[Rfam]
RNA sequence: AAUGGAAGCUGCAGGAACCAACCAUGUGGACAAAUGAAAAAAUGCCUUUGUCUGCAGAAUGCAGCUAUCCUACAAAAAUGUGGAGGUCUCUGUCUGGCUUAGGACAGUUAACUAAGUCCUGAUCGUUCCCCUCCAUACAAC
Numbered sequence: 001a002a003u004g005g006a007a008g009c010u011g012c013a014g015g016a017a018c019c020a021a022c023c024a025u026g027u028g029g030a031c032a033a034a035u036g037a038a039a040a041a042a043u044g045c046c047u048u049u050g051u052c053u054g055c056a057g058a059a060u061g062c063a064g065c066u067a068u069c070c071u072a073c074a075a076a077a078a079u080g081u082g083g084a085g086g087u088c089u090c091u092g093u094c095u096g097g098c099u100u101a102g103g104a105c106a107g108u109u110a111a112c113u114a115a116g117u118c119c120u121g122a123u124c125g126u127u128c129c130c131c132u133c134c135a136u137a138c139a140a141c
Stems, first nucleotide, its partner, number of pairs: 004070003008065005025056007036048002082134005090125001092123003096118007
Shown here is a 141-nucleotide RNA from Loxodonta africana, a member of the family "Small Cajal body specific RNA 3". Rfam classes the family as a small Cajal body RNA. Rfam's curators write: scaRNAs are a specific class of small nuclear RNAs which localise to the Cajal bodies and guide the modification of RNA polymerase II transcribed spliceosomal RNAs U1, U2, U4, U5 and U12. The literature on the family includes a 2002 paper in EMBO J by Darzacq et al., "Cajal body-specific small nuclear RNAs: a novel class of 2'-O-methylation and pseudouridylation guide RNAs".